[Rfam]
RNA sequence: AGAGAAAAGUGAAUAAGCUGUCGUAUAAUUUUGGGGAUAUGGCCCAUGAGUUUCUACCGGACUACCGUAAAUGGUCUGACUACGUCAGGAAUAACCACACGU
Numbered sequence: 001a002g003a004g005a006a007a008a009g010u011g012a013a014u015a016a017g018c019u020g021u022c023g024u025a026u027a028a029u030u031u032u033g034g035g036g037a038u039a040u041g042g043c044c045c046a047u048g049a050g051u052u053u054c055u056a057c058c059g060g061a062c063u064a065c066c067g068u069a070a071a072u073g074g075u076c077u078g079a080c081u082a083c084g085u086c087a088g089g090a091a092u093a094a095c096c097a098c099a100c101g102u
Stems, first nucleotide, its partner, number of pairs: 018088003022084004029049002032046004058078007
RNA: Purine riboswitch aptamer